[Rfam]
RNA sequence: GGCCGGAUAAGGUGCUUGCACCGCAUCCGGCAUCAACGUCUGCACAUUGUCGGAUGCGACGCCGGGGCGUCUUAUCCGACC
Numbered sequence: 001g002g003c004c005g006g007a008u009a010a011g012g013u014g015c016u017u018g019c020a021c022c023g024c025a026u027c028c029g030g031c032a033u034c035a036a037c038g039u040c041u042g043c044a045c046a047u048u049g050u051c052g053g054a055u056g057c058g059a060c061g062c063c064g065g066g067g068c069g070u071c072u073u074a075u076c077c078g079a080c081c
Stems, first nucleotide, its partner, number of pairs: 002031007011022004049080008058071005
This 81-nucleotide RNA sequence from Escherichia coli belongs to the Rfam family "Nucleoid-associated noncoding RNA 4 (CssrE)". Pairs were carried over by alignment from the consensus structure, which is taken from published work. Taxonomically the source falls in Escherichia coli (Bacteria, Pseudomonadota, Gammaproteobacteria, Enterobacterales). From the family's description: In E. coli small RNA transcribed from repeated extragenic palindromic element (REP325) called nucleoid-associated ncRNA 4 (nRNA4) collaborates HU protein in condensing the DNA. The secondary structure but not the sequence of the RNA is important in nucleoid condensation. Rfam links the family to the GO terms bacterial nucleoid DNA packaging, protein binding and bacterial nucleoid. It scores 69 bits against the family's covariance model.